[Rfam]
RNA sequence: CCAACAGUCUAGGGGCCGGGUUAUGUUCUGGGGUGCACGUCCCGGAAUGUGAAGUAACCUGGGCAGGACCCCUAGGCUCAACUGCAUGUGGCAGAGAUCGUCAAAUUGUUCGGGAAAGCCCUUAGAGCUCUGGCUACUAACCGGGGGGAGAAAUCUCCCCGGGGUCCAUCCUUGGAGUAGUGAUAAUGUCAGAGAUUGGGUAACCCGCAGCCAAGCCCCUAAGGCCCCUCUAGGGGGGUUAUGGGGAAGGUUCAACGACUGUAAGGCGUACCGCGCAAGCGGAAUAUACAGUCUAGCCCCAAGGGAAACCUUGCC
Numbered sequence: 001c002c003a004a005c006a007g008u009c010u011a012g013g014g015g016c017c018g019g020g021u022u023a024u025g026u027u028c029u030g031g032g033g034u035g036c037a038c039g040u041c042c043c044g045g046a047a048u049g050u051g052a053a054g055u056a057a058c059c060u061g062g063g064c065a066g067g068a069c070c071c072c073u074a075g076g077c078u079c080a081a082c083u084g085c086a087u088g089u090g091g092c093a094g095a096g097a098u099c100g101u102c103a104a105a106u107u108g109u110u111c112g113g114g115a116a117a118g119c120c121c122u123u124a125g126a127g128c129u130c131u132g133g134c135u136a137c138u139a140a141c142c143g144g145g146g147g148g149a150g151a152a153a154u155c156u157c158c159c160c161g162g163g164g165u166c167c168a169u170c171c172u173u174g175g176a177g178u179a180g181u182g183a184u185a186a187u188g189u190c191a192g193a194g195a196u197u198g199g200g201u202a203a204c205c206c207g208c209a210g211c212c213a214a215g216c217c218c219c220u221a222a223g224g225c226c227c228c229u230c231u232a233g234g235g236g237g238g239u240u241a242u243g244g245g246g247a248a249g250g251u252u253c254a255a256c257g258a259c260u261g262u263a264a265g266g267c268g269u270a271c272c273g274c275g276c277a278a279g280c281g282g283a284a285u286a287u288a289c290a291g292u293c294u295a296g297c298c299c300c301a302a303g304g305g306a307a308a309c310c311u312u313g314c315c
Stems, first nucleotide, its partner, number of pairs: 005035002008032006041049001096271001099268002102265001107209002111207004119200003210251002216245003224239005255294001257293005273280002300313005
This 315-nucleotide sequence from Dimargaris cristalligena belongs to the Rfam family "Group I catalytic intron".
About the family: Group I catalytic introns are large self-splicing ribozymes. They catalyse their own excision from mRNA, tRNA and rRNA precursors in a wide range of organisms. The core secondary structure consists of 9 paired regions (P1-P9). These fold to essentially two domains - the P4-P6 domain (formed from the stacking of P5, P4, P6 and P6a helices) and the P3-P9 domain (formed from the P8, P3, P7 and P9 helices).
Pairs were carried over by alignment from the consensus structure, which is taken from published work.
It scores 57 bits against the family's covariance model.